A member of the RNA family "c-di-AMP riboswitch aptamer (ydaO/yuaA leader)" from Saccharothrix sp. ST-888, 183 nucleotides long. Lineage of the source: Bacteria > Bacillati > Actinomycetota > Actinomycetes > Saccharothrix.
[Rfam]
RNA sequence: UCGGGACACCGACCAGAACCCUUGGGCAAGGGCGGGGGACCCAGGUUUCGUCGCCGUCCCCACGGCUUGGGGUGAAGCCGCCUCAGCAGGGCAGGAAAGCCAUUCCUGUCCCGCCUACCGCGGCCGGGCCAACCUCCCGGUCCGAACCCGACAGCUCACCUCGCAGGCGUGCGGAGAGGACAC
Dot-bracket structure: (...........................)..((((((....((((((................))))))(((.....((((......................................))))..((((..........))))...))).........))))))...................